[Rfam]
RNA: TPP riboswitch aptamer (THI element)
RNA sequence: CUCAGUGACACGGGGUGCCCGCACGAUUGCGGGCUGAGAACACACCCGUCGAACCUGAUCUAGUUAGAACUAGCGAAGGGAUGUCCGCGGAUGAGUAU
Numbered sequence: 001c002u003c004a005g006u007g008a009c010a011c012g013g014g015g016u017g018c019c020c021g022c023a024c025g026a027u028u029g030c031g032g033g034c035u036g037a038g039a040a041c042a043c044a045c046c047c048g049u050c051g052a053a054c055c056u057g058a059u060c061u062a063g064u065u066a067g068a069a070c071u072a073g074c075g076a077a078g079g080g081a082u083g084u085c086c087g088c089g090g091a092u093g094a095g096u097a098u
Base pairs, nucleotide, nucleotide: 007085008084009083010082011048012047013046014045016042017034018033019032020031021030054079055078056077060073061072062071063070